Rfam assigns this 75-nucleotide RNA from Nicotiana sylvestris to the family "Antisense RNA which regulates isiA expression".
The match comes from Rfam's covariance-model search (58 bits).
Rfam 15.1 lists 3,397 matches to the family in 659 species.
Pairs were carried over by alignment from the consensus structure, which was predicted with PFOLD.
The literature on the family includes a 2006 paper in Proc Natl Acad Sci U S A by Duhring et al., "An internal antisense RNA regulates expression of the photosynthesis gene isiA".
Lineage of the source: Eukaryota > Spermatophyta > Solanaceae > Nicotianeae > Nicotiana.

RNA sequence: UAGUUCCAAAGCACGUAGACCUAACAAGAUUAAGGGAAUACCUAAAAUUGUGGUUAUUUUAUUUCGAUCUUUCCA
Numbered sequence: 001u002a003g004u005u006c007c008a009a010a011g012c013a014c015g016u017a018g019a020c021c022u023a024a025c026a027a028g029a030u031u032a033a034g035g036g037a038a039u040a041c042c043u044a045a046a047a048u049u050g051u052g053g054u055u056a057u058u059u060u061a062u063u064u065c066g067a068u069c070u071u072u073c074c075a
Base pairs, nucleotide, nucleotide: 033072034071035070036069037068041066044063045062